Potassium channel RNA editing signal: a 114-nucleotide sequence from Cyprinus carpio.
The literature on the family includes a 2004 paper in Nat Struct Mol Biol by Bhalla et al., "Control of human potassium channel inactivation by editing of a small mRNA hairpin".
NCBI's taxonomy places the organism under Eukaryota, Teleostomi, Cypriniphysae, Cyprininae, Cyprinus carpio.
Its family is annotated with adenosine to inosine editing in the Gene Ontology.
The base pairs follow the family's consensus structure, which is taken from published work.
Rfam's curators write: This family represents a group of sequences related to the human potassium channel Kv1.1 hairpin element which directs the efficient modification of an adenosine to inosine by an adenosine deaminase acting on RNA (ADAR). The ADAR modification causes an isoleucine/valine recoding event which lies in the ion-conducting pore of the potassium channel. It is thought that this editing event targets the process of fast inactivation and allows a more rapid recovery from inactivation at negative potentials.
[Rfam]
RNA sequence: GUGGGGUAUGGCGACAUGUACCCAAUGACGGUGGGUGGAAAGCUGGUGGGCUCCAUGUGUGCUAUCGCCGGUGUGCUCACCAUCUCGCUUCCCGUUCCCGUCAUUGUUUCCAAC
Numbered sequence: 001g002u003g004g005g006g007u008a009u010g011g012c013g014a015c016a017u018g019u020a021c022c023c024a025a026u027g028a029c030g031g032u033g034g035g036u037g038g039a040a041a042g043c044u045g046g047u048g049g050g051c052u053c054c055a056u057g058u059g060u061g062c063u064a065u066c067g068c069c070g071g072u073g074u075g076c077u078c079a080c081c082a083u084c085u086c087g088c089u090u091c092c093c094g095u096u097c098c099c100g101u102c103a104u105u106g107u108u109u110c111c112a113a114c
Stems, first nucleotide, its partner, number of pairs: 001114002004111002008107004013102003018097001020095002037077002040074001049063003